RNA: mir-19 microRNA precursor family
Nucleotides: 084
Stems, first nucleotide, its partner, number of pairs: 004081009014071006020064002023060002026058003032054003
Number, partner (000 for none) and nucleotide at each position: 001000g002000a003000c004081u005080a006079c007078g008077g009076u010075c011074a012073g013000c014071u015070u016069u017068g018067c019066a020064g021063g022000g023060u024059u025000g026058g027057c028056a029000g030000u031000c032054a033053g034052c035000c036000u037000g038000u039000g040000u041000g042000c043000g044000u045000u046000g047000g048000a049000g050000c051000c052034g053033c054032u055000g056028u057027g058026c059024a060023a061000a062000c063021c064020c065000a066019u067018g068017c069016a070015a071014a072000a073012c074011u075010g076009a077008c078007c079006g080005u081004g082000u083000c084000a